[Rfam]
RNA sequence: CAGCAGAGUAGAAGCGUUCAGCAGCAUGCCCCGGCCUGGGGCCUGCGCCCGGAAAUUGCUCUGGAC
Numbered sequence: 001c002a003g004c005a006g007a008g009u010a011g012a013a014g015c016g017u018u019c020a021g022c023a024g025c026a027u028g029c030c031c032c033g034g035c036c037u038g039g040g041g042c043c044u045g046c047g048c049c050c051g052g053a054a055a056u057u058g059c060u061c062u063g064g065a066c
Base pairs, nucleotide, nucleotide: 005062006061007060008059009058010057015051018053019052021048022047024046025045026044028042029041030040031039032038033037
Rfam assigns this 66-nucleotide sequence from Xylophilus sp. Leaf220 to the family "Xanthine riboswitch aptamer (NMT1 RNA)". The match comes from Rfam's covariance-model search (45 bits). Rfam links the family to the GO term purine nucleobase binding. Taxonomically the source falls in Xylophilus (Bacteria, Pseudomonadati, Pseudomonadota, Burkholderiales).